Rfam assigns this 75-nucleotide RNA sequence from Trachymyrmex septentrionalis to the family "mir-278 microRNA precursor family". The organism belongs to Trachymyrmex, within Eukaryota. A reference for the family is Stark et al. (2007), "Systematic discovery and characterization of fly microRNAs using 12 Drosophila genomes", Genome Res. Rfam links the family to the GO terms RISC complex and miRNA-mediated post-transcriptional gene silencing.
RNA sequence: GAUGCGUCCGGAUGAAGUCUUCAUCGGCCAUAAACAUGUUAGAUAAGGUCGGUGGGACUUUCGUCCGUUUGCAGA
Numbered sequence: 001g002a003u004g005c006g007u008c009c010g011g012a013u014g015a016a017g018u019c020u021u022c023a024u025c026g027g028c029c030a031u032a033a034a035c036a037u038g039u040u041a042g043a044u045a046a047g048g049u050c051g052g053u054g055g056g057a058c059u060u061u062c063g064u065c066c067g068u069u070u071g072c073a074g075a
Base pairs, nucleotide, nucleotide: 003073004072005071006070009067010066011065012064013063014062015061016059017058018057019056020055022054023053025051026050027049028048029047